[Rfam]
Shown here is a 90-nucleotide RNA sequence, a member of the family "Small nucleolar RNA snoR26".
RNA sequence: CGAGCAUCAGUGAUGAGCAAUUCCAAUGUUAUCCUUGCACUUUGAUUACCAGUGAAGAAGCUAAUGGGGAAUGGUUACUCUGAGAUGCUC
Numbered sequence: 001c002g003a004g005c006a007u008c009a010g011u012g013a014u015g016a017g018c019a020a021u022u023c024c025a026a027u028g029u030u031a032u033c034c035u036u037g038c039a040c041u042u043u044g045a046u047u048a049c050c051a052g053u054g055a056a057g058a059a060g061c062u063a064a065u066g067g068g069g070a071a072u073g074g075u076u077a078c079u080c081u082g083a084g085a086u087g088c089u090c
Stems, first nucleotide, its partner, number of pairs: 002090007

Source information
Rfam's curators put it in the seed alignment.